Rfam assigns this 80-nucleotide RNA sequence to the family "skipping-rope RNA". Pairs were carried over by alignment from the consensus structure, which is taken from published work.
RNA sequence: UGAAAUCUGAGGACGGAACAGGCAGCCGUCACGCCCUUGUGGUCUUAAAGAGAUGUGGGAUUGUCACCCCACCUAUUUCA
Numbered sequence: 001u002g003a004a005a006u007c008u009g010a011g012g013a014c015g016g017a018a019c020a021g022g023c024a025g026c027c028g029u030c031a032c033g034c035c036c037u038u039g040u041g042g043u044c045u046u047a048a049a050g051a052g053a054u055g056u057g058g059g060a061u062u063g064u065c066a067c068c069c070c071a072c073c074u075a076u077u078u079c080a
Stems, first nucleotide, its partner, number of pairs: 001080006009073001012030005021065004032050001035042002055072005